[Rfam]
RNA sequence: CGGGUCGGUCAGACCAUCGCGGCUCGAGACUGAGGCCCACCGGAGACGGCGGAUAACUGCCUCGGGCCGAGGAAAGUCCGGGCUCCACAGGGCAGGAUGGUGGGUAACGCCCACUCGGGGUGACCCGCAGGCCAGUGCCACAGAAAACAGACCGCCGGCGGCGCUCGUCGUCGCUGGUAAGGGUGAAACGGCGGUGUAAGAGACCACCAGCGCCCCAGGUGACUGGGGCGGCUAGGCAAACCCCAUCCGGUGCAAGGUCGAACAGGAUGUGUUUGAGGGCUGCCCGCCUGAGCAUCCGGGUUGACCGCUUGAGGUCCGUGGCAACACGAGGCCCAGAUGGAUGAUGGUCCGCCUCGGUGAGCAAUCACCGUGGCCGACAGAACCCGGCUUAUCGACCGACCCGUCCC
Numbered sequence: 001c002g003g004g005u006c007g008g009u010c011a012g013a014c015c016a017u018c019g020c021g022g023c024u025c026g027a028g029a030c031u032g033a034g035g036c037c038c039a040c041c042g043g044a045g046a047c048g049g050c051g052g053a054u055a056a057c058u059g060c061c062u063c064g065g066g067c068c069g070a071g072g073a074a075a076g077u078c079c080g081g082g083c084u085c086c087a088c089a090g091g092g093c094a095g096g097a098u099g100g101u102g103g104g105u106a107a108c109g110c111c112c113a114c115u116c117g118g119g120g121u122g123a124c125c126c127g128c129a130g131g132c133c134a135g136u137g138c139c140a141c142a143g144a145a146a147a148c149a150g151a152c153c154g155c156c157g158g159c160g161g162c163g164c165u166c167g168u169c170g171u172c173g174c175u176g177g178u179a180a181g182g183g184u185g186a187a188a189c190g191g192c193g194g195u196g197u198a199a200g201a202g203a204c205c206a207c208c209a210g211c212g213c214c215c216c217a218g219g220u221g222a223c224u225g226g227g228g229c230g231g232c233u234a235g236g237c238a239a240a241c242c243c244c245a246u247c248c249g250g251u252g253c254a255a256g257g258u259c260g261a262a263c264a265g266g267a268u269g270u271g272u273u274u275g276a277g278g279g280c281u282g283c284c285c286g287c288c289u290g291a292g293c294a295u296c297c298g299g300g301u302u303g304a305c306c307g308c309u310u311g312a313g314g315u316c317c318g319u320g321g322c323a324a325c326a327c328g329a330g331g332c333c334c335a336g337a338u339g340g341a342u343g344a345u346g347g348u349c350c351g352c353c354u355c356g357g358u359g360a361g362c363a364a365u366c367a368c369c370g371u372g373g374c375c376g377a378c379a380g381a382a383c384c385c386g387g388c389u390u391a392u393c394g395a396c397c398g399a400c401c402c403g404u405c406c407c
Stems, first nucleotide, its partner, number of pairs: 001403010011392001012349007020069009074390003078387005083252001085250002090285004095248005100114005115129001116127004130243002135241002137237003152182002154178009190208002193205003210232001211230008256306004265297006277289004313332001315330001317328004
A member of the RNA family "Bacterial RNase P class A" from Nesterenkonia sandarakina, 407 nucleotides long. The family's RNA type in Rfam is ribozyme. Pairs were carried over by alignment from the consensus structure, which is taken from published work.